Source information:
This 125-nucleotide sequence from Gossypium raimondii belongs to the Rfam family "MIR7504 microRNA precursor family". Its family is annotated with miRNA-mediated post-transcriptional gene silencing and RISC complex in the Gene Ontology. The source organism's lineage runs through Eukaryota, Viridiplantae, Embryophyta, Magnoliopsida and Gossypium.
RNA sequence: UGUAGGAGGAUGACAAAUAAGAUUUUUCCUCCUGAUUUUCAGCAAUUUCCUAUAAAAAAAUUCAAAUUCAACUAAAAAUGCUAAAAAUCAGGAGAAAAAAAUCUGAUUUGCCAUAUUCUCCUAUU
Numbered sequence: 001u002g003u004a005g006g007a008g009g010a011u012g013a014c015a016a017a018u019a020a021g022a023u024u025u026u027u028c029c030u031c032c033u034g035a036u037u038u039u040c041a042g043c044a045a046u047u048u049c050c051u052a053u054a055a056a057a058a059a060a061u062u063c064a065a066a067u068u069c070a071a072c073u074a075a076a077a078a079u080g081c082u083a084a085a086a087a088u089c090a091g092g093a094g095a096a097a098a099a100a101a102u103c104u105g106a107u108u109u110g111c112c113a114u115a116u117u118c119u120c121c122u123a124u125u
Base pairs, nucleotide, nucleotide: 002124003123004122005121006120007119008118009117010116011113012112014110015109016108017107018106020104021103022102023100024099025098026097027096029094030093031092032091033090034089035088036087037086038085039084041082042081046077047076048075